RNA: Xanthine riboswitch aptamer (NMT1 RNA)
RNA sequence: AUAUUGAGUAUAAGCGGUUAGUGUGCGGUGCAAAGUUUGCACAAUACAUGGGACAUUGCUCUGCAG
Number, nucleotide and partner (000 for none) at each position: 001a000002u000003a000004u000005u000006g061007a060008g059009u058010a057011u000012a000013a000014g000015c051016g000017g000018u053019u052020a000021g049022u048023g047024u046025g045026c000027g000028g000029u000030g000031c000032a000033a000034a000035g000036u000037u000038u000039g000040c000041a000042c000043a000044a000045u025046a024047c023048a022049u021050g000051g015052g019053a018054c000055a000056u000057u010058g009059c008060u007061c006062u000063g000064c000065a000066g000